[Rfam]
RNA sequence: UGCUGGUGGUGAAGCUCCCUCUCUCCGAGCACUGGGCCCUGCCUGGGGGCUCCCGGGAGCCAGGGGAGAUGCUACCUCGGAAGCUGAAGCG
Numbered sequence: 001u002g003c004u005g006g007u008g009g010u011g012a013a014g015c016u017c018c019c020u021c022u023c024u025c026c027g028a029g030c031a032c033u034g035g036g037c038c039c040u041g042c043c044u045g046g047g048g049g050c051u052c053c054c055g056g057g058a059g060c061c062a063g064g065g066g067a068g069a070u071g072c073u074a075c076c077u078c079g080g081a082a083g084c085u086g087a088a089g090c091g
Stems, first nucleotide, its partner, number of pairs: 001091004

A member of the RNA family "Z6 small nucleolar RNA", 91 nucleotides long.
The base pairs follow the family's consensus structure, which was predicted with PFOLD.
A reference for the family is Galardi et al. (2002), "Purified box C/D snoRNPs are able to reproduce site-specific 2'-O-methylation of target RNA in vitro", Mol Cell Biol.